[Rfam]
RNA sequence: AGGUAAUGUCUCCUCUACCUUUAUCAAGGGAGGCACUCGGUCAUGCUGUGGGUCUUUAGGAUUAAGACCUUAGACACGAAAGUUGUCGAUGGUGGGAUGUGAGGGUGGGUUAAAUGCCCA
Numbered sequence: 001a002g003g004u005a006a007u008g009u010c011u012c013c014u015c016u017a018c019c020u021u022u023a024u025c026a027a028g029g030g031a032g033g034c035a036c037u038c039g040g041u042c043a044u045g046c047u048g049u050g051g052g053u054c055u056u057u058a059g060g061a062u063u064a065a066g067a068c069c070u071u072a073g074a075c076a077c078g079a080a081a082g083u084u085g086u087c088g089a090u091g092g093u094g095g096g097a098u099g100u101g102a103g104g105g106u107g108g109g110u111u112a113a114a115u116g117c118c119c120a
Stems, first nucleotide, its partner, number of pairs: 001020004007035007036103004040098003044094004050070003054066003073087004106120005
RNA: epsC RNA